[Rfam]
RNA sequence: AUUGGGGUUGGUGAUGGGGUGCCACCGGAAUCGAAUGAUUCAAACCGCUUGUAUAGCUGAUGACUCCUACAGAGAC
Numbered sequence: 001a002u003u004g005g006g007g008u009u010g011g012u013g014a015u016g017g018g019g020u021g022c023c024a025c026c027g028g029a030a031u032c033g034a035a036u037g038a039u040u041c042a043a044a045c046c047g048c049u050u051g052u053a054u055a056g057c058u059g060a061u062g063a064c065u066c067c068u069a070c071a072g073a074g075a076c
Base pairs, nucleotide, nucleotide: 010026011025012024013023016067017066018065019064020063047057048056049055
Shown here is a 76-nucleotide sequence from Vibrio sp. AND4, a member of the family "Fluoride riboswitch aptamer (crcB RNA motif)". Pairs were carried over by alignment from the consensus structure, which is taken from published work.